[Rfam]
RNA sequence: AUACUUACCUUAAGAUGUCAGAGGAGAUCAAGAAGUCCUUCUGACCAGGCAUCGUUUUUUUCCAAUUUAGAGGGAAGUUAUGCAUUUCCUGCAUUGGAAGUUCUCUGAUCUUUUGGGAUAAGAAAACUUCUUUUUGCUCCAAUUGAUGUAAACUCCCUGGUCACUUGCACAUACUUGCGGAAAAGGUGUCUGCUGACGUUUCGUUCCCCAAUUCCAAUAAGUGGGUUAAUUUCUUUGUUUUUUCUUAAUUGCAAAAGCUUGGAUUUUUAUCUACUUUUGGAGUCCUGUGUUCAUUCUGCCUGGAGAAUUAUGGCACCAGGUAUUAUAACUGGUGCUUGGGGAGCUGGUUACUGUAUGGUAUUCAGAUUCGAGGGCAUUUUGUCCUAAUUGGGAUUCCAGUUUAAGUAAUCAUAGUUGCUUUGAGGAAGCCAAGGUGUUAUGACUGGUUCUUCUUAACAUUGGGUGAUGACUAUUGCUCUUUUGAGUAGUAUGAAAUUAUCUGAAGUGGAGGUUCUGGUAAUAGCAUAAAGAUGCUGAUAGUCCUUAUUACCCAAUAUUCUCAUGGAGGCCACUGAUUCUAGGUUUUCAAUCUAUG
Number, nucleotide and partner (000 for none) at each position: 001a000002u000003a000004c000005u000006u000007a000008c000009c000010u582011u581012a000013a579014g578015a577016u000017g045018u044019c043020a042021g041022a039023g038024g037025a036026g000027a000028u000029c000030a000031a000032g000033a000034a000035g000036u025037c024038c023039u022040u000041c021042u020043g019044a018045c017046c192047a191048g190049g189050c188051a187052u186053c185054g000055u000056u000057u000058u183059u182060u181061u180062c179063c000064a000065a000066u000067u000068u000069a000070g000071a000072g000073g000074g000075a000076a175077g174078u173079u000080a000081u000082g000083c000084a000085u000086u000087u000088c000089c000090u000091g000092c000093a000094u000095u000096g000097g000098a000099a000100g000101u000102u000103c000104u000105c000106u000107g000108a000109u000110c000111u000112u000113u000114u000115g000116g000117g000118a000119u000120a000121a000122g000123a000124a000125a000126a000127c000128u000129u000130c000131u000132u000133u000134u000135u000136g000137c000138u000139c000140c000141a000142a000143u000144u000145g000146a000147u000148g000149u000150a000151a000152a000153c000154u000155c000156c000157c000158u000159g000160g000161u000162c000163a000164c000165u000166u000167g000168c000169a000170c000171a000172u000173a078174c077175u076176u000177g000178c000179g062180g061181a060182a059183a058184a000185g053186g052187u051188g050189u049190c048191u047192g046193c000194u000195g000196a000197c000198g569199u568200u567201u566202c565203g000204u000205u342206c341207c340208c339209c338210a337211a283212u282213u281214c280215c279216a278217a277218u000219a000220a000221g000222u273223g272224g271225g270226u269227u000228a000229a000230u000231u000232u000233c000234u000235u000236u000237g258238u257239u256240u255241u254242u253243u000244c000245u000246u000247a000248a000249u000250u000251g000252c000253a242254a241255a240256a239257g238258c237259u000260u000261g000262g000263a000264u000265u000266u000267u000268u000269a226270u225271c224272u223273a222274c000275u000276u000277u217278u216279g215280g214281a213282g212283u211284c000285c000286u000287g000288u000289g000290u000291u000292c000293a308294u307295u306296c305297u304298g000299c000300c000301u000302g000303g000304a297305g296306a295307a294308u293309u000310a000311u000312g000313g335314c334315a333316c332317c331318a330319g329320g000321u000322a000323u000324u000325a000326u000327a000328a000329c319330u318331g317332g316333u315334g314335c313336u000337u210338g209339g208340g207341g206342a205343g000344c000345u000346g000347g000348u000349u000350a000351c000352u000353g000354u000355a000356u000357g000358g000359u000360a000361u000362u000363c000364a000365g000366a000367u000368u000369c000370g000371a000372g000373g000374g000375c000376a000377u000378u000379u000380u000381g000382u000383c000384c000385u000386a000387a000388u000389u000390g000391g000392g000393a000394u000395u000396c000397c000398a000399g000400u000401u000402u000403a000404a000405g000406u000407a000408a000409u000410c000411a000412u000413a000414g000415u000416u000417g000418c000419u000420u000421u000422g000423a000424g000425g000426a000427a000428g000429c000430c000431a000432a000433g000434g000435u000436g000437u000438u000439a000440u000441g000442a000443c000444u000445g000446g000447u000448u000449c000450u000451u000452c000453u000454u000455a000456a000457c000458a000459u000460u000461g000462g000463g000464u000465g000466a000467u000468g000469a000470c000471u000472a000473u000474u000475g000476c000477u000478c000479u000480u000481u000482u000483g000484a000485g000486u000487a000488g000489u000490a000491u000492g000493a000494a000495a000496u000497u000498a000499u000500c000501u000502g000503a000504a000505g000506u000507g000508g000509a000510g000511g000512u000513u000514c000515u000516g000517g000518u000519a000520a000521u000522a000523g000524c000525a000526u000527a000528a000529a000530g000531a000532u000533g541534c540535u539536g000537a000538u000539a535540g534541u533542c000543c000544u000545u000546a000547u000548u000549a000550c000551c000552c000553a000554a000555u000556a000557u000558u000559c000560u000561c000562a000563u000564g000565g202566a201567g200568g199569c198570c000571a000572c000573u000574g000575a000576u000577u015578c014579u013580a000581g011582g010583u000584u000585u000586u000587c000588a000589a000590u000591c000592u000593a000594u000595g000
RNA: Yeast U1 spliceosomal RNA
Organism: Nakaseomyces glabratus